RNA sequence: AGAUGAGUGAGACACCCCGUCCGCAGGGGACUGCGGACGACGCCCCGCCGGUACGUCCCCAGUGCCGGCGCGGCCGUGCCACCGCGCACGCCACCGGGGCCGCGUCCGACGCGGAUCCCGGGACUCCUCACCGAUCGGA
Numbered sequence: 001a002g003a004u005g006a007g008u009g010a011g012a013c014a015c016c017c018c019g020u021c022c023g024c025a026g027g028g029g030a031c032u033g034c035g036g037a038c039g040a041c042g043c044c045c046c047g048c049c050g051g052u053a054c055g056u057c058c059c060c061a062g063u064g065c066c067g068g069c070g071c072g073g074c075c076g077u078g079c080c081a082c083c084g085c086g087c088a089c090g091c092c093a094c095c096g097g098g099g100c101c102g103c104g105u106c107c108g109a110c111g112c113g114g115a116u117c118c119c120g121g122g123a124c125u126c127c128u129c130a131c132c133g134a135u136c137g138g139a
Stems, first nucleotide, its partner, number of pairs: 004130004009126002018039009042074003046070002049067006076089004094121006101114001131138002
The record is a 139-nucleotide RNA from Streptomyces mobaraensis, which matches "Streptomyces RNA 5676" in Rfam. From the family's description: Identified by deep sequencing of transcriptome at the end of exponential growth phase. Appears longer on northern blot than sequencing transcript. This indicates processing step. Streptomyces specific. NCBI's taxonomy places the organism under Bacteria, Actinomycetes, Kitasatosporales, Streptomycetaceae, Streptomyces. The base pairs follow the family's consensus structure.